[Rfam]
This 102-nucleotide RNA from Paenibacillus athensensis belongs to the Rfam family "Purine riboswitch aptamer".
Pairs were carried over by alignment from the consensus structure, which is taken from published work.
Gene Ontology term of the family: purine nucleobase biosynthetic process.
RNA sequence: ACUGAAAAUGUCGAAUUGACUCGUAUAAUGUCGGGAAUACGGCCUGAAAGUUUCUACCCAAAAACCGUGAAUUUUUGGACUACGAGGAAGCGAAUGCGGGGA
Number, nucleotide and partner (000 for none) at each position: 001a000002c000003u000004g000005a000006a000007a000008a000009u000010g000011u000012c000013g000014a000015a000016u000017u000018g000019a000020c086021u085022c084023g083024u082025a081026u000027a000028a000029u049030g000031u047032c046033g045034g044035g043036a000037a000038u000039a000040c000041g000042g000043c035044c034045u033046g032047a031048a000049a029050g000051u000052u000053u000054c000055u000056a000057c000058c078059c077060a076061a075062a074063a073064a072065c000066c000067g000068u000069g000070a000071a000072u064073u063074u062075u061076u060077g059078g058079a000080c000081u025082a024083c023084g022085a021086g020087g000088a000089a000090g000091c000092g000093a000094a000095u000096g000097c000098g000099g000100g000101g000102a000